[Rfam]
RNA: radC RNA
Organism: Xanthomonas citri
RNA sequence: AUCCUGCGGCGCAGGCAGCGGGGACGUUUGCGUCUCCACUUCCCAGCACAGCCGCGGUCUUCGAGGCUGUGGCGCGGGCCACCGCGUCGAUCGCUCCCGUCCGCACCGCAUCCGACACCGCGGACGCCCAGCGCCCAGGCGCUGGAGGAUGC
Numbered sequence: 001a002u003c004c005u006g007c008g009g010c011g012c013a014g015g016c017a018g019c020g021g022g023g024a025c026g027u028u029u030g031c032g033u034c035u036c037c038a039c040u041u042c043c044c045a046g047c048a049c050a051g052c053c054g055c056g057g058u059c060u061u062c063g064a065g066g067c068u069g070u071g072g073c074g075c076g077g078g079c080c081a082c083c084g085c086g087u088c089g090a091u092c093g094c095u096c097c098c099g100u101c102c103g104c105a106c107c108g109c110a111u112c113c114g115a116c117a118c119c120g121c122g123g124a125c126g127c128c129c130a131g132c133g134c135c136c137a138g139g140c141g142c143u144g145g146a147g148g149a150u151g152c
Stems, first nucleotide, its partner, number of pairs: 011042001013040002015037001021036006048070006056092004071088007120152003128145007